About this RNA:
This 45-nucleotide RNA sequence from Neobacillus rhizophilus belongs to the Rfam family "PreQ1 (pre queuosine) riboswitch aptamer". The source organism's lineage runs through Bacteria, Bacilli, Caryophanales, Bacillaceae and Neobacillus. Rfam 15.1 lists 873 matches to the family in 692 species.

RNA sequence: CUUUAAGUGGUUCGAGAGCCUCCCACUUUAAAAAACUAAGGAGAA
Numbered sequence: 001c002u003u004u005a006a007g008u009g010g011u012u013c014g015a016g017a018g019c020c021u022c023c024c025a026c027u028u029u030a031a032a033a034a035a036c037u038a039a040g041g042a043g044a045a
Base pairs, nucleotide, nucleotide: 006027007026008025009024010023016037